[Rfam]
Small nucleolar RNA SNORA48: a 135-nucleotide RNA from Carlito syrichta. The family is grouped with related families in Rfam's "SNORA48 clan". About the family: The snoRNA ACA 48 has been identified to guide pseudouridylation of the residue U3797 in the 28S rRNA subunit. For this family Rfam cites "Mapping to nucleotide resolution of pseudouridine residues in large subunit ribosomal RNAs from representative eukaryotes, prokaryotes, archaebacteria, mitochondria and chloroplasts" (Ofengand and Bakin, J Mol Biol, 1997). Rfam links the family to the GO terms RNA processing and nucleolus. The family's consensus secondary structure was predicted with RNAalifold. NCBI's taxonomy places the organism under Eukaryota, Eumetazoa, Chordata, Euarchontoglires, Carlito. By type it is an H/ACA-box small nucleolar RNA.
RNA sequence: GAUCCCUGACCUGAGUAGAGUGGCAUCUGGUUGAUGGUGCUCAUCUCAUAUUAACCAGUGACAAAGCAACUACUUGUUCAUCCCAGCUUGGCUUUUGGUCUGUGCCCAGGCCUGGUUCGUGCCUUGGGUACAUGG
Number, nucleotide and partner (000 for none) at each position: 001g000002a000003u061004c060005c000006c058007u057008g056009a000010c000011c000012u053013g052014a051015g000016u000017a000018g047019a046020g045021u000022g041023g040024c039025a038026u037027c036028u000029g000030g000031u000032u000033g000034a000035u000036g027037g026038u025039g024040c023041u022042c000043a000044u000045c020046u019047c018048a000049u000050a000051u014052u013053a012054a000055c000056c008057a007058g006059u000060g004061a003062c000063a000064a000065a000066g000067c000068a000069a000070c000071u000072a000073c000074u000075u130076g129077u128078u127079c126080a125081u000082c000083c000084c000085a000086g000087c000088u000089u000090g123091g122092c121093u000094u000095u000096u119097g118098g117099u000100c115101u114102g113103u000104g111105c110106c000107c000108a000109g000110g105111c104112c000113u102114g101115g100116u000117u098118c097119g096120u000121g092122c091123c090124u000125u080126g079127g078128g077129u076130a075131c000132a000133u000134g000135g000